[Rfam]
The family of this 133-nucleotide RNA sequence from Pseudomonas sp. M47T1 is "rmf RNA". The source organism's lineage runs through Bacteria, Pseudomonadati, Gammaproteobacteria, Pseudomonadales and Pseudomonas. Rfam classes the family as a cis-regulatory element.

RNA sequence: UUGUUUAGAAAUCACUACAGGCCCCACCGCAACGGUGCGGCACCAUUGCUCGCCACGCCGGCAGCGAGCGUCAAAAACCGGCAGAACGACUCUGCCCGGCCUCAGACGAGGCCGACGGGACAUAACAGUCAAC
Numbered sequence: 001u002u003g004u005u006u007a008g009a010a011a012u013c014a015c016u017a018c019a020g021g022c023c024c025c026a027c028c029g030c031a032a033c034g035g036u037g038c039g040g041c042a043c044c045a046u047u048g049c050u051c052g053c054c055a056c057g058c059c060g061g062c063a064g065c066g067a068g069c070g071u072c073a074a075a076a077a078c079c080g081g082c083a084g085a086a087c088g089a090c091u092c093u094g095c096c097c098g099g100c101c102u103c104a105g106a107c108g109a110g111g112c113c114g115a116c117g118g119g120a121c122a123u124a125a126c127a128g129u130c131a132a133c
Stems, first nucleotide, its partner, number of pairs: 021041003025037004048069006080096006098113006